[Rfam]
Nucleotides: 067
Base pairs, nucleotide, nucleotide: 001054002053003052004051005050006049007048008047011022012021013020028044029043030042031041035067036066037065038064039063
Number, partner (000 for none) and nucleotide at each position: 001054g002053c003052c004051a005050c006049c007048c008047c009000u010000a011022g012021c013020u014000c015000g016000g017000c018000c019000a020013g021012g022011c023000a024000a025000a026000a027000a028044g029043c030042g031041g032000a033000u034000u035067c036066c037065u038064u039063c040000a041031c042030c043029g044028c045000c046000u047008g048007g049006g050005g051004u052003g053002g054001c055000u056000c057000c058000u059000a060000a061000u062000u063039g064038a065037a066036g067035g

The family of this 67-nucleotide RNA from Nitrosospira briensis is "int-alpA RNA". A search with the family's covariance model found it, with a score of 59 bits. Rfam's curators write: Acidobacteria (1 example), Planctomycetes (1 example), Proteobacteria.